[Rfam]
RNA: Burkholderia RNA 7 (anti-hemB)
RNA sequence: CCCCCGCUUUUCCUCCCUGAGCGGGUGCCUUUGUGUGUGACAGCAAAAAGGCUUCCAAACCUGGCUCCUCUAGAGCCAGGUUUUUUUU
Numbered sequence: 001c002c003c004c005c006g007c008u009u010u011u012c013c014u015c016c017c018u019g020a021g022c023g024g025g026u027g028c029c030u031u032u033g034u035g036u037g038u039g040a041c042a043g044c045a046a047a048a049a050g051g052c053u054u055c056c057a058a059a060c061c062u063g064g065c066u067c068c069u070c071u072a073g074a075g076c077c078a079g080g081u082u083u084u085u086u087u088u
Stems, first nucleotide, its partner, number of pairs: 003025006027052006059081008